Nucleotides: 097
Base pairs, nucleotide, nucleotide: 006070007069008068009067010066015032017030018029019028020027021026034059035058038056039055040054042051043050045094047092048091072081073080
Number, partner (000 for none) and nucleotide at each position: 001000g002000u003000a004000g005000u006070g007069u008068a009067u010066u011000c012000a013000g014000a015032a016000u017030u018029g019028c020027a021026c022000u023000a024000c025000u026021g027020u028019g029018c030017a031000a032015u033000g034059c035058c036000a037000a038056c039055c040054g041000a042051g043050u044000g045094u046000a047092g048091u049000c050043a051042c052000c053000a054040c055039g056038g057000u058035g059034g060000a061000a062000a063000g064000a065000u066010a067009a068008u069007a070006c071000g072081g073080g074000c075000a076000u077000c078000g079000u080073c081072c082000a083000a084000a085000a086000c087000a088000a089000a090000c091048g092047u093000c094045g095000u096000c097000u